Shown here is an 89-nucleotide sequence from Digitaria exilis, a member of the family "Small nucleolar RNA Z266". For this family Rfam cites "The high diversity of snoRNAs in plants: identification and comparative study of 120 snoRNA genes from Oryza sativa" (Chen et al., Nucleic Acids Res, 2003). The match comes from Rfam's covariance-model search (93 bits). The source organism's lineage runs through Eukaryota, Embryophyta, Panicoideae, Paniceae and Digitaria.
[Rfam]
RNA sequence: UAUUUGCAGGAAUGAUGAAUCAAUUAGAUGUGUGAAAUCUUCUUAUGAUCUUAACUUUUGAGGCAUAAAUUUGGUCUGACCUGCUGAUC
Numbered sequence: 001u002a003u004u005u006g007c008a009g010g011a012a013u014g015a016u017g018a019a020u021c022a023a024u025u026a027g028a029u030g031u032g033u034g035a036a037a038u039c040u041u042c043u044u045a046u047g048a049u050c051u052u053a054a055c056u057u058u059u060g061a062g063g064c065a066u067a068a069a070u071u072u073g074g075u076c077u078g079a080c081c082u083g084c085u086g087a088u089c
Base pairs, nucleotide, nucleotide: 002088003087004086006084007083008082009081010080